[Rfam]
RNA sequence: CUGCAUUGCCCUUUGUUGGGCGUUUCCUCCCUAGACUCAGGCCGCUCUGUGAGCGGCCCUUUUUUUGCCAGAA
Numbered sequence: 001c002u003g004c005a006u007u008g009c010c011c012u013u014u015g016u017u018g019g020g021c022g023u024u025u026c027c028u029c030c031c032u033a034g035a036c037u038c039a040g041g042c043c044g045c046u047c048u049g050u051g052a053g054c055g056g057c058c059c060u061u062u063u064u065u066u067g068c069c070a071g072a073a
Stems, first nucleotide, its partner, number of pairs: 008021004040058008